[Rfam]
A member of the RNA family "c-di-GMP-I riboswitch aptamer" from Veronia nyctiphanis, 94 nucleotides long. Pairs were carried over by alignment from the consensus structure, which is taken from published work. The match comes from Rfam's covariance-model search (69 bits).
RNA sequence: CACAGUCAACGGCAAACUGCCUGAAAAGGUAGGACGCAAAGUUUCCGGUCUAAGAGUGACUUUAAAGAUCACUUAAGAUAGCGGGGCCGCCAUU
Numbered sequence: 001c002a003c004a005g006u007c008a009a010c011g012g013c014a015a016a017c018u019g020c021c022u023g024a025a026a027a028g029g030u031a032g033g034a035c036g037c038a039a040a041g042u043u044u045c046c047g048g049u050c051u052a053a054g055a056g057u058g059a060c061u062u063u064a065a066a067g068a069u070c071a072c073u074u075a076a077g078a079u080a081g082c083g084g085g086g087c088c089g090c091c092a093u094u
Stems, first nucleotide, its partner, number of pairs: 012037002017032006041087003045084003048079003055073004